Background:
Shown here is a 92-nucleotide RNA from Rhodopila globiformis, a member of the family "Selenocysteine transfer RNA". It scores 73 bits against the family's covariance model. Lineage of the source: Bacteria > Pseudomonadota > Alphaproteobacteria > Acetobacterales > Rhodopila. Gene Ontology term of the family: triplet codon-amino acid adaptor activity. The base pairs follow the family's consensus structure, which is taken from published work. For this family Rfam cites "Eukaryotic selenocysteine tRNA has the 9/4 secondary structure" (Mizutani and Goto, FEBS Lett, 2000).

[Rfam]
Nucleotides: 092
Base pairs, nucleotide, nucleotide: 001092002091003090004089005088006087007086008085011026012025013024014023015022016021027045028044029043030042031041047065048064049063050062051061069083070082071081072080
Number, partner (000 for none) and nucleotide at each position: 001092g002091g003090a004089g005088g006087a007086g008085a009000c010000g011026c012025g013024a014023c015022c016021c017000c018000g019000g020000u021016g022015g023014g024013u025012c026011g027045g028044c029043c030042g031041g032000a033000c034000u035000u036000c037000a038000a039000a040000c041031c042030c043029g044028g045027u046000u047065g048064g049063g050062g051061c052000u053000g054000c055000c056000g057000a058000g059000c060000g061051g062050u063049c064048c065047c066000g067000g068000g069083c070082a071081g072080g073000u074000u075000c076000g077000a078000c079000u080072c081071c082070u083069g084000c085008u086007c087006u088005c089004u090003u091002c092001c